RNA sequence: UUCCAUCUUCGGGGCAGGGUGAAAUUCCCGACCGGCGGUGAUGAACGAUUCUUUCGUUCUCAGUCCGUGACCCGUUUCAGCGAUGAAGAGUCCAUGCUCAUGAGCUGUAGCGGUGGAUCCGGUGAAAAUCCGGGACCGACAGUGAAAGUCUGGAUGGGAGAAGAUGAGG
Numbered sequence: 001u002u003c004c005a006u007c008u009u010c011g012g013g014g015c016a017g018g019g020u021g022a023a024a025u026u027c028c029c030g031a032c033c034g035g036c037g038g039u040g041a042u043g044a045a046c047g048a049u050u051c052u053u054u055c056g057u058u059c060u061c062a063g064u065c066c067g068u069g070a071c072c073c074g075u076u077u078c079a080g081c082g083a084u085g086a087a088g089a090g091u092c093c094a095u096g097c098u099c100a101u102g103a104g105c106u107g108u109a110g111c112g113g114u115g116g117a118u119c120c121g122g123u124g125a126a127a128a129u130c131c132g133g134g135a136c137c138g139a140c141a142g143u144g145a146a147a148g149u150c151u152g153g154a155u156g157g158g159a160g161a162a163g164a165u166g167a168g169g
Base pairs, nucleotide, nucleotide: 004166005165006164007163008162009161010160017029018028019027031149032148033138034137035068036067037066038065063136064135072113073112074111075110076109118134119133120132121131122130140152141151142150